[Rfam]
RNA sequence: GCGCCGCCGUGUGCGGCGUCCGUGGCCUGCAACGGGGCUGCGGCGGGGGUGGUGCCGUGUCGGCGCAGCACCACCCCCGCGU
Numbered sequence: 001g002c003g004c005c006g007c008c009g010u011g012u013g014c015g016g017c018g019u020c021c022g023u024g025g026c027c028u029g030c031a032a033c034g035g036g037g038c039u040g041c042g043g044c045g046g047g048g049g050u051g052g053u054g055c056c057g058u059g060u061c062g063g064c065g066c067a068g069c070a071c072c073a074c075c076c077c078c079g080c081g082u
Base pairs, nucleotide, nucleotide: 001019002018003017004016005015006014007013020043021042022041023040024039025038026036027035028034044079045078046077047076048075049074050073051072052071053070054069055068057066058065059064

Description:
A member of the RNA family "Streptomyces RNA 6106" from Streptomyces spiralis, 82 nucleotides long. Lineage of the source: Bacteria > Actinomycetota > Actinomycetes > Streptomycetaceae > Streptomyces. The family's RNA type in Rfam is small RNA.